[Rfam]
RNA sequence: CUCUUAUUCUGAGCAGGUGGAGGGAACAAGGCCCGAAGAAACCCGGCAACCGUCUUAUAUUAAUUUCAUCAUUAAUGUAGGAAAAGGUGCUCUCCUGAAGCGAAGUAAACACUUCGAACGAUAAGAG
Numbered sequence: 001c002u003c004u005u006a007u008u009c010u011g012a013g014c015a016g017g018u019g020g021a022g023g024g025a026a027c028a029a030g031g032c033c034c035g036a037a038g039a040a041a042c043c044c045g046g047c048a049a050c051c052g053u054c055u056u057a058u059a060u061u062a063a064u065u066u067c068a069u070c071a072u073u074a075a076u077g078u079a080g081g082a083a084a085a086g087g088u089g090c091u092c093u094c095c096u097g098a099a100g101c102g103a104a105g106u107a108a109a110c111a112c113u114u115c116g117a118a119c120g121a122u123a124a125g126a127g
Stems, first nucleotide, its partner, number of pairs: 001127008013044001016043003022034003031096001045091004050087002053082011101116006

Source information
Rfam assigns this 127-nucleotide RNA sequence from Exiguobacterium artemiae to the family "SAM riboswitch aptamer (S box leader)". Its family is annotated with regulation of gene expression in the Gene Ontology. The literature on the family includes a 2013 paper in RNA by Daldrop and Lilley, "The plasticity of a structural motif in RNA: structural polymorphism of a kink turn as a function of its environment". The SAM riboswitch is found upstream of a number of genes which code for proteins involved in methionine or cysteine biosynthesis in Gram-positive bacteria.